[Rfam]
RNA sequence: CGCACGCGGGAGCGGCGGGGCGGUCUGAAAGCGGCCGUUUCCUCCAUCCGGUCCUAGGACGAUAAUCCUAGGUCUUUCCCGCGGCGGCUAACCGGAAAAGGAAUGAAACAU
Numbered sequence: 001c002g003c004a005c006g007c008g009g010g011a012g013c014g015g016c017g018g019g020g021c022g023g024u025c026u027g028a029a030a031g032c033g034g035c036c037g038u039u040u041c042c043u044c045c046a047u048c049c050g051g052u053c054c055u056a057g058g059a060c061g062a063u064a065a066u067c068c069u070a071g072g073u074c075u076u077u078c079c080c081g082c083g084g085c086g087g088c089u090a091a092c093c094g095g096a097a098a099a100g101g102a103a104u105g106a107a108a109c110a111u
Stems, first nucleotide, its partner, number of pairs: 001086003005083006014045002053072006
RNA: rpsB sRNA
Organism: Candidatus Viadribacter manganicus